c-di-GMP-I-UAU riboswitch aptamer: an 82-nucleotide RNA from bacterium HR31. Rfam links the family to the GO term cyclic-di-GMP binding. The literature on the family includes a 2017 paper in Proc Natl Acad Sci U S A by Weinberg et al., "Bioinformatic analysis of riboswitch structures uncovers variant classes with altered ligand specificity". The family is grouped with related families in Rfam's "c-di-GMP_I riboswitch clan". It scores 66 bits against the family's covariance model.

[Rfam]
RNA sequence: GUUCGAAAGGGCAAACCCGCGGUAACGCGGGGACGCAAAGCCAACGGGGCCUGCGAGGAGCAGGUCGGCCGGGUUGCCGAAA
Numbered sequence: 001g002u003u004c005g006a007a008a009g010g011g012c013a014a015a016c017c018c019g020c021g022g023u024a025a026c027g028c029g030g031g032g033a034c035g036c037a038a039a040g041c042c043a044a045c046g047g048g049g050c051c052u053g054c055g056a057g058g059a060g061c062a063g064g065u066c067g068g069c070c071g072g073g074u075u076g077c078c079g080a081a082a
Stems, first nucleotide, its partner, number of pairs: 011036002016031006039075004045071003048066007